[Rfam]
RNA sequence: ACGACCUUACUUGAACAGGAUCUGUUCUAUAGGAUCGUACCUCUGUAUCCUUGCUCACUAAGGAGACAGGACCCCAAACCUGGUGGAUGAACCAUGGCCGUGUGAUCAGAGCGUGAUUAACGGCCUCGUUGUCUCUGUUAGAGGCACCGAACUGUAGAGGAUCGUUCUCAACUUGCUUCGGCUGGGUUGGGAUGGUCGCACGGCUGUCUGACAGGCU
Numbered sequence: 001a002c003g004a005c006c007u008u009a010c011u012u013g014a015a016c017a018g019g020a021u022c023u024g025u026u027c028u029a030u031a032g033g034a035u036c037g038u039a040c041c042u043c044u045g046u047a048u049c050c051u052u053g054c055u056c057a058c059u060a061a062g063g064a065g066a067c068a069g070g071a072c073c074c075c076a077a078a079c080c081u082g083g084u085g086g087a088u089g090a091a092c093c094a095u096g097g098c099c100g101u102g103u104g105a106u107c108a109g110a111g112c113g114u115g116a117u118u119a120a121c122g123g124c125c126u127c128g129u130u131g132u133c134u135c136u137g138u139u140a141g142a143g144g145c146a147c148c149g150a151a152c153u154g155u156a157g158a159g160g161a162u163c164g165u166u167c168u169c170a171a172c173u174u175g176c177u178u179c180g181g182c183u184g185g186g187u188u189g190g191g192a193u194g195g196u197c198g199c200a201c202g203g204c205u206g207u208c209u210g211a212c213a214g215g216c217u
Base pairs, nucleotide, nucleotide: 001038002037003035005033006032007031013027014026015025016024017023018022043069044068045067046066048064049063050062051061052060053059079215080214081213082212097204098203099202100201101200102199103198104197105196106195107194108193110166111165112164113163120155121154122153123152127149128148130146131145132144133143134142135141136140168190169189170188171187172186173184175182176181
A member of the RNA family "Plant small nucleolar RNA U3" from Quercus lobata, 217 nucleotides long. The literature on the family includes a 2010 paper in RNA Biol by Marz and Stadler, "Comparative analysis of eukaryotic U3 snoRNA". Its family is annotated with RNA processing and nucleolus in the Gene Ontology. Pairs were carried over by alignment from the consensus structure, which is taken from published work. The match comes from Rfam's covariance-model search (192 bits). By type it is a C/D-box small nucleolar RNA. Taxonomically the source falls in Quercus (Eukaryota, Tracheophyta, fabids, Fagaceae). Small nucleolar RNAs (snoRNAs) are involved in the processing and modification of rRNA in the nucleolus. There are two main classes of snoRNAs: the box C/D class, and the box H/ACA class. U3 snoRNA is a member of the box C/D class. Indeed, the box C/D element is a subset of the six short sequence elements found in all U3 snoRNAs, namely boxes A, A', B, C, C', and D. The U3 snoRNA secondary structure is characterised by a small 5' domain (with boxes A and A'), and a larger 3' domain (with boxes B, C, C', and D), the two domains being linked by a single-stranded hinge. Boxes B and C form the B/C motif, which appears to be exclusive to U3 snoRNAs, and boxes C' and D form the C'/D motif. The latter is functionally similar to the C/D motifs found in other snoRNAs. The 5' domain and the hinge region act as a pre-rRNA-binding domain. The 3' domain has conserved protein-binding sites. Both the box B/C and box C'/D motifs are sufficient for nuclear retention of U3 snoRNA. The box C'/D motif is also necessary for nucleolar localisation, stability and hyper-methylation of U3 snoRNA. Both box B/C and C'/D motifs are involved in specific protein interactions and are necessary for the rRNA processing functions of U3 snoRNA.